[Rfam]
RNA sequence: CGGGGAUGACGCAGCCUCCCCGUCAAGUGGGUGACCCCAUGCAAGCGCUGC
Number, nucleotide and partner (000 for none) at each position: 001c022002g021003g020004g019005g018006a017007u000008g000009a000010c000011g051012c050013a049014g048015c047016c000017u006018c005019c004020c003021c002022g001023u000024c000025a000026a000027g040028u039029g038030g037031g000032u000033g000034a000035c000036c000037c030038c029039a028040u027041g000042c000043a000044a000045g000046c000047g015048c014049u013050g012051c011
Shown here is a 51-nucleotide RNA, a member of the family "chrB-b RNA". The family's RNA type in Rfam is cis-regulatory element.